The family of this 49-nucleotide RNA sequence is "L31-Actinobacteria ribosomal protein leader". Pairs were carried over by alignment from the consensus structure, which is taken from published work.

RNA sequence: UCGGCCCCGGUUCACGCAGCGCGCAAUUCCGCUCCUGCGACCCGGCGCC
Numbered sequence: 001u002c003g004g005c006c007c008c009g010g011u012u013c014a015c016g017c018a019g020c021g022c023g024c025a026a027u028u029c030c031g032c033u034c035c036u037g038c039g040a041c042c043c044g045g046c047g048c049c
Base pairs, nucleotide, nucleotide: 003049004048005047007045008044009043010042015039016038017037018036019035021032022031